The family of this 127-nucleotide RNA is "TPP riboswitch aptamer (THI element)".
RNA sequence: GAUAUUGGCUGCGGGUAUCCUUGUCAACGCCUAUACUCACUAGAGUAUCGCAUUGCAAGGAUUGAGAUCAUACCGCUUGAACCUGAUCAGCGCUCAUACCUGCGUAGGGAAGCCCCAGUGUCGAAAA
Numbered sequence: 001g002a003u004a005u006u007g008g009c010u011g012c013g014g015g016u017a018u019c020c021u022u023g024u025c026a027a028c029g030c031c032u033a034u035a036c037u038c039a040c041u042a043g044a045g046u047a048u049c050g051c052a053u054u055g056c057a058a059g060g061a062u063u064g065a066g067a068u069c070a071u072a073c074c075g076c077u078u079g080a081a082c083c084u085g086a087u088c089a090g091c092g093c094u095c096a097u098a099c100c101u102g103c104g105u106a107g108g109g110a111a112g113c114c115c116c117a118g119u120g121u122c123g124a125a126a127a
Stems, first nucleotide, its partner, number of pairs: 007114004011076004016070001017062008082108004088102003092099001